[Rfam]
RNA sequence: UCGGGUGGAUGACUCUGCAAUUUUAUUAGUGAUGGAAAAACUUCAAUAAAAAUUGCACGGUAUCCAUCUGUAA
Numbered sequence: 001u002c003g004g005g006u007g008g009a010u011g012a013c014u015c016u017g018c019a020a021u022u023u024u025a026u027u028a029g030u031g032a033u034g035g036a037a038a039a040a041c042u043u044c045a046a047u048a049a050a051a052a053u054u055g056c057a058c059g060g061u062a063u064c065c066a067u068c069u070g071u072a073a
Stems, first nucleotide, its partner, number of pairs: 002070009012061002016057009
The family of this 73-nucleotide RNA from Ictalurus punctatus is "mir-363 microRNA precursor family". A reference for the family is Bentwich et al. (2005), "Identification of hundreds of conserved and nonconserved human microRNAs", Nat Genet. Lineage of the source: Eukaryota > Eumetazoa > Craniata > Otomorpha > Ictalurus. Pairs were carried over by alignment from the consensus structure, which was predicted with RNAalifold.